rpfG RNA: an 86-nucleotide sequence from Xanthomonas citri. By type it is a small RNA. Rfam's curators put it in the seed alignment. Pairs were carried over by alignment from the consensus structure, which is taken from published work.

[Rfam]
RNA sequence: GGCACAGAUACUGCAUAUGCUAGGGCGGAGCCCCGAACAGCGUAUCGUUUGGGGAUAGUCGGCACAGGGGCCGGCGUCAUCGCUUU
Numbered sequence: 001g002g003c004a005c006a007g008a009u010a011c012u013g014c015a016u017a018u019g020c021u022a023g024g025g026c027g028g029a030g031c032c033c034c035g036a037a038c039a040g041c042g043u044a045u046c047g048u049u050u051g052g053g054g055a056u057a058g059u060c061g062g063c064a065c066a067g068g069g070g071c072c073g074g075c076g077u078c079a080u081c082g083c084u085u086u
Stems, first nucleotide, its partner, number of pairs: 031054008040045001058075006